[Rfam]
RNA sequence: CUGCUGCCUGGUUCAAGUAAUCCAGGAUAGGCUGUUUCCUCAAAGCACGGCCUACUCUUGAUUACUUGUUUCAGGAAGUAG
Numbered sequence: 001c002u003g004c005u006g007c008c009u010g011g012u013u014c015a016a017g018u019a020a021u022c023c024a025g026g027a028u029a030g031g032c033u034g035u036u037u038c039c040u041c042a043a044a045g046c047a048c049g050g051c052c053u054a055c056u057c058u059u060g061a062u063u064a065c066u067u068g069u070u071u072c073a074g075g076a077a078g079u080a081g
Stems, first nucleotide, its partner, number of pairs: 002080004007075005014068009024058003028054006
mir-26 microRNA precursor family: an 81-nucleotide RNA from Xenopus tropicalis. NCBI's taxonomy places the organism under Eukaryota, Eumetazoa, Vertebrata, Sarcopterygii, Silurana.